This 52-nucleotide RNA from Panthera leo belongs to the Rfam family "mir-1302 microRNA precursor family". It scores 66 bits against the family's covariance model. The organism belongs to Panthera, within Eukaryota. Rfam 15.1 lists 16,160 matches to the family in 135 species.
RNA sequence: UUUUUAAUAUAAGUAUGUCCCAUGCAAUUUUCAGGAUAUAGUUAUGCUAAAA
Numbered sequence: 001u002u003u004u005u006a007a008u009a010u011a012a013g014u015a016u017g018u019c020c021c022a023u024g025c026a027a028u029u030u031u032c033a034g035g036a037u038a039u040a041g042u043u044a045u046g047c048u049a050a051a052a
Stems, first nucleotide, its partner, number of pairs: 006048001008046005014040003018036003022031001